Shown here is a 76-nucleotide RNA from Hymenochirus boettgeri, a member of the family "mir-458 microRNA precursor family". Rfam links the family to the GO terms miRNA-mediated post-transcriptional gene silencing and RISC complex. The family's consensus secondary structure was predicted with RNAalifold.
RNA sequence: GUGCAGAUGGCAGCGCCUUUCCGAGCUAUAAACAGUAUCAUUGUCAUAGCUCUUUGAAUGGUACUACCAUAUGUGC
Numbered sequence: 001g002u003g004c005a006g007a008u009g010g011c012a013g014c015g016c017c018u019u020u021c022c023g024a025g026c027u028a029u030a031a032a033c034a035g036u037a038u039c040a041u042u043g044u045c046a047u048a049g050c051u052c053u054u055u056g057a058a059u060g061g062u063a064c065u066a067c068c069a070u071a072u073g074u075g076c
Base pairs, nucleotide, nucleotide: 002075003074004073007070008069009068012065013064015062016061017060019058020057021056023052024051025050026049027048028047029046
It scores 71 bits against the family's covariance model.